[Rfam]
This 45-nucleotide RNA sequence from a Caulobacteraceae bacterium belongs to the Rfam family "chrB-b RNA". The match comes from Rfam's covariance-model search (37 bits).
RNA sequence: CCGGGGUGAGCGGUCCCCCGGUCAGGCGCCCCGCCCAAGCACCGA
Numbered sequence: 001c002c003g004g005g006g007u008g009a010g011c012g013g014u015c016c017c018c019c020g021g022u023c024a025g026g027c028g029c030c031c032c033g034c035c036c037a038a039g040c041a042c043c044g045a
Stems, first nucleotide, its partner, number of pairs: 001021006011044004025035004